RNA sequence: CUUAGAAAUAUCAUUGAGUGCAGCGUUGAUGAAAAUGUCGAGUUUCUGCCGAUCCUGAUGCUGCAUUAUUAUUCAUUUCGGACAGUUUUCAUCUACGCUGCACUCAAUCAUGUUUCAG
Numbered sequence: 001c002u003u004a005g006a007a008a009u010a011u012c013a014u015u016g017a018g019u020g021c022a023g024c025g026u027u028g029a030u031g032a033a034a035a036u037g038u039c040g041a042g043u044u045u046c047u048g049c050c051g052a053u054c055c056u057g058a059u060g061c062u063g064c065a066u067u068a069u070u071a072u073u074c075a076u077u078u079c080g081g082a083c084a085g086u087u088u089u090c091a092u093c094u095a096c097g098c099u100g101c102a103c104u105c106a107a108u109c110a111u112g113u114u115u116c117a118g
Stems, first nucleotide, its partner, number of pairs: 006115006013108014028093001030091003